[Rfam]
Glycine riboswitch aptamer: a 142-nucleotide sequence from Paenibacillus xylanivorans. This family represents the bacterial glycine riboswitch. It scores 34 bits against the family's covariance model.
RNA sequence: CUCUGGAGAGUGCGCGAUAUGCGCCACCCAAGGGGUAUAUGGUCAAGCAGCACGGUGUGCAGGGGACAUUACCUGUGAAUACAGGGUAUGCAUCAAUCCGCCGCGCUUCUUAUCAUGAAACUCUCAGGUAUCGAGGACAGAG
Numbered sequence: 001c002u003c004u005g006g007a008g009a010g011u012g013c014g015c016g017a018u019a020u021g022c023g024c025c026a027c028c029c030a031a032g033g034g035g036u037a038u039a040u041g042g043u044c045a046a047g048c049a050g051c052a053c054g055g056u057g058u059g060c061a062g063g064g065g066a067c068a069u070u071a072c073c074u075g076u077g078a079a080u081a082c083a084g085g086g087u088a089u090g091c092a093u094c095a096a097u098c099c100g101c102c103g104c105g106c107u108u109c110u111u112a113u114c115a116u117g118a119a120a121c122u123c124u125c126a127g128g129u130a131u132c133g134a135g136g137a138c139a140g141a142g
Base pairs, nucleotide, nucleotide: 001142002141003140004139005138012024013023014022015021026129027128028127030124033123034122035121039116040115041114042113043112
Description:
The organism belongs to Paenibacillus, within Bacteria.